Editing element of GABA-3 exon 9: a 54-nucleotide RNA sequence from Synaphobranchus kaupii. It is annotated as a cis-regulatory element. Rfam 15.1 lists 4,208 matches to the family in 654 species. On this family, see Ohlson et al., RNA 2007: "Editing modifies the GABA(A) receptor subunit alpha3". A search with the family's covariance model found it, with a score of 68 bits.
[Rfam]
RNA sequence: AAGGUGGCAUACGCUACGGCCAUGGACUGGUUCAUGGCGGUCUGUUACGCCUUC
Numbered sequence: 001a002a003g004g005u006g007g008c009a010u011a012c013g014c015u016a017c018g019g020c021c022a023u024g025g026a027c028u029g030g031u032u033c034a035u036g037g038c039g040g041u042c043u044g045u046u047a048c049g050c051c052u053u054c
Base pairs, nucleotide, nucleotide: 002053003052006051007050008049010047011046013045014044016041017040019038020037022035023034024033025032026031